[Rfam]
RNA sequence: CUAAGACAGUGCUGACGUCGACAACGUCUUAGAAAGCCAACCUUCAAAGACAGCCGUGACGUCAACACCGUCUUUGAAGCCUGGUUUUCUAAGACGGUCGUGAUGUCAGCACCGUCUUU
Dot-bracket structure: ...((((.((((((((((((..(.(((((((((((((((..((((((((((.....(......).....))))))))))..))))))))))))))).)..)))))))))))).))))..
Numbered sequence: 001c002u003a004a005g006a007c008a009g010u011g012c013u014g015a016c017g018u019c020g021a022c023a024a025c026g027u028c029u030u031a032g033a034a035a036g037c038c039a040a041c042c043u044u045c046a047a048a049g050a051c052a053g054c055c056g057u058g059a060c061g062u063c064a065a066c067a068c069c070g071u072c073u074u075u076g077a078a079g080c081c082u083g084g085u086u087u088u089c090u091a092a093g094a095c096g097g098u099c100g101u102g103a104u105g106u107c108a109g110c111a112c113c114g115u116c117u118u119u
Stems, first nucleotide, its partner, number of pairs: 004117004009112012023098001025096015042079010057064001